[Rfam]
RNA sequence: GACGUCGGGACCUGCGCUAGGCGAUACUUACAUUUCAAUGUACGCUUGGGUAAAGUCCGGGAAAAGUCAAGCAAGCCUCUAGCUGGGGGUCCUGCUAAUAGCGGGGCGGGAUGUGACCAGAAAAAAUACCCACUUGCACGCGCUUGAAAACAAGGAAUGAUGAGAUUCGUCUCGUUUGUUUUUUGUUUGGGGCUGUUGACGCUUUGCUCCUCUCCUUCCCUUUGGGAAGGUGGGAGUAUAAAGCCGAAGCCCUUGUUUUUUCCUUCUUAGGAGGGGGAGGGCCAAGCGCGGCUUGCUGGGUUGAGAUACUUCACUCCCUGGCGGUAAGACUUGGAUGCAGUGCGUUGCGCAGGGCACCGGUGCGCUCUCGCUUCUUAUGGGAGCGGGUUUUGUUGCCGGUGACACUCAGUCCGGAUUAUCCCGCACGUC
Numbered sequence: 001g002a003c004g005u006c007g008g009g010a011c012c013u014g015c016g017c018u019a020g021g022c023g024a025u026a027c028u029u030a031c032a033u034u035u036c037a038a039u040g041u042a043c044g045c046u047u048g049g050g051u052a053a054a055g056u057c058c059g060g061g062a063a064a065a066g067u068c069a070a071g072c073a074a075g076c077c078u079c080u081a082g083c084u085g086g087g088g089g090u091c092c093u094g095c096u097a098a099u100a101g102c103g104g105g106g107c108g109g110g111a112u113g114u115g116a117c118c119a120g121a122a123a124a125a126a127u128a129c130c131c132a133c134u135u136g137c138a139c140g141c142g143c144u145u146g147a148a149a150a151c152a153a154g155g156a157a158u159g160a161u162g163a164g165a166u167u168c169g170u171c172u173c174g175u176u177u178g179u180u181u182u183u184u185g186u187u188u189g190g191g192g193c194u195g196u197u198g199a200c201g202c203u204u205u206g207c208u209c210c211u212c213u214c215c216u217u218c219c220c221u222u223u224g225g226g227a228a229g230g231u232g233g234g235a236g237u238a239u240a241a242a243g244c245c246g247a248a249g250c251c252c253u254u255g256u257u258u259u260u261u262c263c264u265u266c267u268u269a270g271g272a273g274g275g276g277g278a279g280g281g282c283c284a285a286g287c288g289c290g291g292c293u294u295g296c297u298g299g300g301u302u303g304a305g306a307u308a309c310u311u312c313a314c315u316c317c318c319u320g321g322c323g324g325u326a327a328g329a330c331u332u333g334g335a336u337g338c339a340g341u342g343c344g345u346u347g348c349g350c351a352g353g354g355c356a357c358c359g360g361u362g363c364g365c366u367c368u369c370g371c372u373u374c375u376u377a378u379g380g381g382a383g384c385g386g387g388u389u390u391u392g393u394u395g396c397c398g399g400u401g402a403c404a405c406u407c408a409g410u411c412c413g414g415a416u417u418a419u420c421c422c423g424c425a426c427g428u429c
Stems, first nucleotide, its partner, number of pairs: 001429004007422003012353002018347001019047005057414005066322004076088004090106006108318004113314003129300003355401008